[Rfam]
RNA sequence: GACAAUAAAAUUACCUUGUAAUAGGUGUAUUGGACCCGAGGGCAGUACUCGGCGCCUCCACCAUAUUUUCACAUAGUGGCGAAUAAGAAUCGACAUACAUGGUAAAGAUGGUAGCUUUGCUCGGUCAGAUACCAUCGUUAAGAGUUUAUAAUUUAGAUGCAAACGAUAAUUUUGCUGCUAAUGGUAAUGUUGUAGGAUUAGCUGCUUAA
Number, nucleotide and partner (000 for none) at each position: 001g121002a000003c119004a118005a117006u000007a000008a000009a000010a000011u000012u000013a000014c111015c110016u000017u108018g000019u000020a000021a000022u000023a000024g000025g000026u099027g098028u097029a000030u000031u095032g094033g000034a000035c000036c052037c051038g050039a049040g048041g000042g000043c000044a000045g000046u000047a000048c040049u039050c038051g037052g036053c081054g080055c079056c078057u000058c076059c000060a000061c000062c000063a000064u000065a000066u000067u000068u000069u000070c000071a000072c000073a000074u000075a000076g058077u000078g056079g055080c054081g053082a000083a000084u000085a000086a000087g000088a000089a000090u000091c000092g000093a000094c032095a031096u000097a028098c027099a026100u000101g000102g000103u000104a000105a000106a000107g000108a017109u000110g015111g014112u000113a000114g000115c000116u000117u005118u004119g003120c000121u001122c137123g136124g135125u134126c000127a000128g000129a000130u000131a000132c000133c000134a125135u124136c123137g122138u000139u000140a000141a000142g000143a000144g000145u000146u000147u000148a000149u000150a000151a000152u000153u000154u000155a000156g000157a000158u000159g000160c000161a000162a000163a000164c000165g000166a000167u000168a000169a000170u000171u000172u000173u000174g000175c000176u000177g000178c000179u000180a000181a000182u000183g000184g000185u000186a000187a000188u000189g000190u000191u000192g000193u000194a000195g000196g000197a000198u000199u000200a000201g000202c000203u000204g000205c000206u000207u000208a000209a000

This 209-nucleotide sequence belongs to the Rfam family "permuted transfer-messenger RNA". Its family is annotated with RNA catabolic process in the Gene Ontology.